[Rfam]
RNA sequence: UACUGUUAAUGAUGAUUUUGUGUUAAACAAUGGGAAUCUCUCUGAAAAAGAAUGAGGAAGACUCUCUUUUAUGCUGAAACAGUA
Number, nucleotide and partner (000 for none) at each position: 001u084002a083003c082004u081005g080006u079007u078008a000009a000010u000011g000012a000013u000014g000015a000016u000017u000018u000019u000020g000021u000022g000023u000024u000025a000026a000027a000028c000029a000030a000031u000032g000033g000034g000035a000036a000037u000038c000039u000040c000041u000042c000043u000044g000045a000046a000047a000048a000049a000050g000051a000052a000053u000054g000055a000056g000057g000058a000059a000060g000061a000062c000063u000064c000065u000066c000067u000068u000069u000070u000071a000072u000073g000074c000075u000076g000077a000078a007079a006080c005081a004082g003083u002084a001
Small nucleolar RNA SNORD79: an 84-nucleotide RNA sequence from Chelonoidis abingdonii. NCBI's taxonomy places the organism under Eukaryota, Teleostomi, Cryptodira, Testudinoidea, Chelonoidis nigra species complex. The family has 28 seed sequences and 784 matches in Rfam 15.1. Rfam describes the family as follows. snoRNA U79 or Z22 is found in intron 7 of the gas5 gene in humans and is also present in mice. The literature on the family includes a 2002 paper in Mol Cell Biol by Galardi et al., "Purified box C/D snoRNPs are able to reproduce site-specific 2'-O-methylation of target RNA in vitro". Its Rfam clan is "SNORD74 clan".